A member of the RNA family "U12 minor spliceosomal RNA" from Panicum virgatum, 161 nucleotides long.
For this family Rfam cites "Pre-mRNA splicing: the discovery of a new spliceosome doubles the challenge" (Tarn and Steitz, Trends Biochem Sci, 1997).
Rfam classes the family as a spliceosomal small nuclear RNA.

[Rfam]
RNA sequence: UUGCCUUAAACUAAUGAGUAAGGAAAACAAAGCGGUGCGGUGAGAGCCGCUCGCGGUGCGGGGUCAAAACCAGCACGGCGAUUUUUGAAGGGGGAAGAGGCUGGCGCGGGUAUUGAUUGACACUGCCCUACUUUGCAGGACUUGCCUGGGCGGGCCUCCCC
Numbered sequence: 001u002u003g004c005c006u007u008a009a010a011c012u013a014a015u016g017a018g019u020a021a022g023g024a025a026a027a028c029a030a031a032g033c034g035g036u037g038c039g040g041u042g043a044g045a046g047c048c049g050c051u052c053g054c055g056g057u058g059c060g061g062g063g064u065c066a067a068a069a070c071c072a073g074c075a076c077g078g079c080g081a082u083u084u085u086u087g088a089a090g091g092g093g094g095a096a097g098a099g100g101c102u103g104g105c106g107c108g109g110g111u112a113u114u115g116a117u118u119g120a121c122a123c124u125g126c127c128c129u130a131c132u133u134u135g136c137a138g139g140a141c142u143u144g145c146c147u148g149g150g151c152g153g154g155c156c157u158c159c160c161c
Stems, first nucleotide, its partner, number of pairs: 004023005032054003037050004056076004091161004098157005104151001107148002110145003123138004